[Rfam]
Nucleotides: 171
Base pairs, nucleotide, nucleotide: 011156012155013154014153018043019042020041021040022039023038044151045150046149047148048147049146054064055063065136066135067134073101074100075099076098104130105129106128107127
Number, partner (000 for none) and nucleotide at each position: 001000g002000u003000g004000c005000g006000g007000c008000c009000u010000c011156c012155g013154c014153c015000g016000a017000g018043u019042c020041c021040g022039g023038c024000c025000c026000g027000u028000c029000c030000u031000c032000g033000u034000g035000g036000c037000a038023g039022c040021c041020g042019g043018a044151g045150c046149c047148g048147g049146g050000g051000a052000c053000c054064c055063a056000c057000c058000g059000a060000a061000c062000c063055u064054g065136g066135g067134g068000u069000g070000a071000a072000u073101c074100g075099g076098c077000c078000a079000a080000c081000u082000g083000c084000c085000c086000u087000a088000c089000g090000g091000g092000g093000c094000u095000g096000g097000g098076g099075c100074c101073g102000u103000a104130g105129g106128g107127c108000a109000u110000a111000c112000c113000u114000u115000c116000c117000g118000g119000a120000a121000c122000c123000g124000u125000c126000c127107g128106c129105c130104c131000g132000a133000a134067c135066c136065c137000g138000a139000c140000a141000g142000c143000u144000a145000a146049c147048c148047c149046g150045g151044u152000a153014g154013g155012c156011g157000g158000a159000c160000g161000a162000c163000g164000g165000a166000a167000g168000g169000a170000g171000u
The family of this 171-nucleotide sequence from Streptomyces sp. M41(2017) is "c-di-AMP riboswitch aptamer (ydaO/yuaA leader)".
Gene Ontology terms of the family: regulation of gene expression and cyclic-di-AMP binding.
A search with the family's covariance model found it, with a score of 67 bits.